RNA sequence: AUCCAUCUGUUUGGCAGACCUGGAGCAGUUAGUGUCUGUUGCUAAGGUUUCCAUUACAGAUGUGAGAAAAAAAGUGUUCUUCUGCUUUCUGUCUGUCUCAGUGGCAAUGAAGAUUGAAUGGGGGAUAUGACA
Numbered sequence: 001a002u003c004c005a006u007c008u009g010u011u012u013g014g015c016a017g018a019c020c021u022g023g024a025g026c027a028g029u030u031a032g033u034g035u036c037u038g039u040u041g042c043u044a045a046g047g048u049u050u051c052c053a054u055u056a057c058a059g060a061u062g063u064g065a066g067a068a069a070a071a072a073a074g075u076g077u078u079c080u081u082c083u084g085c086u087u088u089c090u091g092u093c094u095g096u097c098u099c100a101g102u103g104g105c106a107a108u109g110a111a112g113a114u115u116g117a118a119u120g121g122g123g124g125a126u127a128u129g130a131c132a
Base pairs, nucleotide, nucleotide: 002065003064004062005061006060007059008058012053013052016050017049018048019047020046024040025039026038027037028036077125078124079123080122081121082120085116088113089112090111094106095105096104097103
Shown here is a 132-nucleotide RNA from Rhinopithecus roxellana, a member of the family "Small nucleolar RNA SNORA31". The family's RNA type in Rfam is H/ACA-box small nucleolar RNA. A search with the family's covariance model found it, with a score of 51 bits. Gene Ontology terms of the family: nucleolus and RNA processing. NCBI's taxonomy places the organism under Eukaryota, Gnathostomata, Euarchontoglires, Primates, Rhinopithecus. About the family: ACA31 (SNORA31) belongs to the H/ACA class of snoRNAs which are thought to guide the sites of modification of uridines to pseudouridines. ACA31 is predicted to guide the pseudouridylation of U3713 in 28S rRNA and U218 in 18S rRNA. This family includes the mouse homologue snoMBI-161.